[Rfam]
RNA sequence: GGGGAGCAUUUAAAGUUGAAAUGUUGCCUGAUAUACCCUUCCUACAAGAAGAUAAUCUCUACUUUCCUGCUUGUUGUAUGCUAGUCAUGUUCACAAGCCUCUUGGAUAUGAGAUACAUAU
Numbered sequence: 001g002g003g004g005a006g007c008a009u010u011u012a013a014a015g016u017u018g019a020a021a022u023g024u025u026g027c028c029u030g031a032u033a034u035a036c037c038c039u040u041c042c043u044a045c046a047a048g049a050a051g052a053u054a055a056u057c058u059c060u061a062c063u064u065u066c067c068u069g070c071u072u073g074u075u076g077u078a079u080g081c082u083a084g085u086c087a088u089g090u091u092c093a094c095a096a097g098c099c100u101c102u103u104g105g106a107u108a109u110g111a112g113a114u115a116c117a118u119a120u
Stems, first nucleotide, its partner, number of pairs: 001029003005025007056113003069098006076092001078090003
RNA: Small nucleolar RNA snoR104
Organism: Cynara cardunculus